Source information: Rfam assigns this 71-nucleotide RNA from Streptomyces sp. WMMB 714 to the family "tRNA". About the family: Transfer RNA (tRNA) molecules are approximately 80 nucleotides in length. Pairs were carried over by alignment from the consensus structure, which is taken from published work. Lineage of the source: Bacteria > Bacillati > Actinomycetota > Actinomycetes > Streptomyces. The family's RNA type in Rfam is transfer RNA.
[Rfam]
RNA sequence: UCCCGGGUCGACUAAGGGCAAGUCCUUGGUUUUUGGUGCCAAUGAUGGGGGUUCGAAUCCUCCCCCGGGAG
Numbered sequence: 001u002c003c004c005g006g007g008u009c010g011a012c013u014a015a016g017g018g019c020a021a022g023u024c025c026u027u028g029g030u031u032u033u034u035g036g037u038g039c040c041a042a043u044g045a046u047g048g049g050g051g052u053u054c055g056a057a058u059c060c061u062c063c064c065c066c067g068g069g070a071g
Stems, first nucleotide, its partner, number of pairs: 001070007010024004026042005047063005